[Rfam]
RNA sequence: CCCUUCUGCUCAAAAGAACUGUGCUAAAAUUGCAGACUCCAGGGUCUCCUGGUUUAUGCGAUGAUGCUAGCAGAGUAUCAUGCGGAAGAAGAGCAAUGGCUCUGCGCUGGAAAUGAAACUGAGUUGGACCUCUUUCUUAAUGUCCAGUGGCUUAUGUUUCAAGGCUCAGAGCAACAAAC
Numbered sequence: 001c002c003c004u005u006c007u008g009c010u011c012a013a014a015a016g017a018a019c020u021g022u023g024c025u026a027a028a029a030u031u032g033c034a035g036a037c038u039c040c041a042g043g044g045u046c047u048c049c050u051g052g053u054u055u056a057u058g059c060g061a062u063g064a065u066g067c068u069a070g071c072a073g074a075g076u077a078u079c080a081u082g083c084g085g086a087a088g089a090a091g092a093g094c095a096a097u098g099g100c101u102c103u104g105c106g107c108u109g110g111a112a113a114u115g116a117a118a119c120u121g122a123g124u125u126g127g128a129c130c131u132c133u134u135u136c137u138u139a140a141u142g143u144c145c146a147g148u149g150g151c152u153u154a155u156g157u158u159u160c161a162a163g164g165c166u167c168a169g170a171g172c173a174a175c176a177a178a179c
Base pairs, nucleotide, nucleotide: 019075020074022072023071024070025069026068029065030064031063032062036055039052040051041050042049043048099172100171101170102169103168104167106165123148125146126145127144128143
Shown here is a 179-nucleotide sequence from Danio rerio, a member of the family "Small nucleolar RNA SNORA81". The family's consensus secondary structure was predicted with WAR. It scores 108 bits against the family's covariance model. The family has 28 seed sequences and 1,161 matches in Rfam 15.1. It is annotated as an H/ACA-box small nucleolar RNA.